[Rfam]
RNA sequence: GGUUGCAAGUUUGAGGUCAUAGCAGAAGUGCUCAUGGCUCAGCCUGUCAGAUUCCAGCAAAAUCUGUGAAUUCUGCU
Numbered sequence: 001g002g003u004u005g006c007a008a009g010u011u012u013g014a015g016g017u018c019a020u021a022g023c024a025g026a027a028g029u030g031c032u033c034a035u036g037g038c039u040c041a042g043c044c045u046g047u048c049a050g051a052u053u054c055c056a057g058c059a060a061a062a063u064c065u066g067u068g069a070a071u072u073c074u075g076c077u
Base pairs, nucleotide, nucleotide: 015044016043017042021077022076023075024074025073026072027071028040030038048066049065050064051063052062053061
The record is a 77-nucleotide RNA from Alligator mississippiensis, which matches "Mammalian CPEB3 ribozyme" in Rfam. A search with the family's covariance model found it, with a score of 44 bits. Pairs were carried over by alignment from the consensus structure, which is taken from published work.